[Rfam]
RNA sequence: AACCAAGUGAAUCUCCGAGCCGUUUCACCUAAAGGGUCUGUGGCCCCAGGGUGGACGGCCAAUGGGUACGGCGGGAAACGGCCGUGCCUCCCACGUUUGGAAAGGAGAGCUGGCCGGCGCGAC
Numbered sequence: 001a002a003c004c005a006a007g008u009g010a011a012u013c014u015c016c017g018a019g020c021c022g023u024u025u026c027a028c029c030u031a032a033a034g035g036g037u038c039u040g041u042g043g044c045c046c047c048a049g050g051g052u053g054g055a056c057g058g059c060c061a062a063u064g065g066g067u068a069c070g071g072c073g074g075g076a077a078a079c080g081g082c083c084g085u086g087c088c089u090c091c092c093a094c095g096u097u098u099g100g101a102a103a104g105g106a107g108a109g110c111u112g113g114c115c116g117g118c119g120c121g122a123c
Base pairs, nucleotide, nucleotide: 003117004116012108013107014106015105016104019059020058021057022056023055024054026053027052028051029050034046035045036044064089065088066087067086068085069084070083071082072081074079090100091099

The family of this 123-nucleotide RNA sequence from Geothermobacter ehrlichii is "Molybdenum/Tungsten riboswitch aptamer (Moco RNA motif)". Gene Ontology terms of the family: molybdenum ion binding, regulation of gene expression and tungstate binding. Lineage of the source: Bacteria > Pseudomonadati > Thermodesulfobacteriota > Desulfuromonadales > Geothermobacter. It scores 78 bits against the family's covariance model. Pairs were carried over by alignment from the consensus structure, which is taken from published work. On this family, see Regulski et al., Mol Microbiol 2008: "in molybdenum cofactor and tungsten cofactor metabolism".